[Rfam]
RNA sequence: AGGCAGAGUAGAAGCGUUCAGCAUAUAUAGUUGAUUCGACAUAUAUGUGGGUCAUUGCUCAGAAA
Number, nucleotide and partner (000 for none) at each position: 001a000002g000003g000004c000005a000006g060007a059008g058009u057010a056011g000012a000013a000014g000015c050016g000017u000018u000019c051020a000021g048022c047023a046024u045025a044026u043027a042028u000029a000030g000031u000032u000033g000034a000035u000036u000037c000038g000039a000040c000041a000042u027043a026044u025045a024046u023047g022048u021049g000050g015051g019052u000053c000054a000055u000056u010057g009058c008059u007060c006061a000062g000063a000064a000065a000
Rfam assigns this 65-nucleotide sequence from Acinetobacter sp. CIP-A165 to the family "Xanthine riboswitch aptamer (NMT1 RNA)". The sequence is in the family's curated seed alignment.